Shown here is a 67-nucleotide sequence from Ornithorhynchus anatinus, a member of the family "mir-33 microRNA precursor family". Taxonomically the source falls in Ornithorhynchus (Eukaryota, Eumetazoa, Vertebrata, Amniota).
RNA sequence: CUGUAGUGCAUUGUAGUUGCAUUGCAUGUGUCUGACCAGGGUGCAAUGCCCCUGCAGUGCAAUACAG
Numbered sequence: 001c002u003g004u005a006g007u008g009c010a011u012u013g014u015a016g017u018u019g020c021a022u023u024g025c026a027u028g029u030g031u032c033u034g035a036c037c038a039g040g041g042u043g044c045a046a047u048g049c050c051c052c053u054g055c056a057g058u059g060c061a062a063u064a065c066a067g
Stems, first nucleotide, its partner, number of pairs: 001067004006063001007061010019049001021047007
Pairs were carried over by alignment from the consensus structure, which was predicted with PFOLD.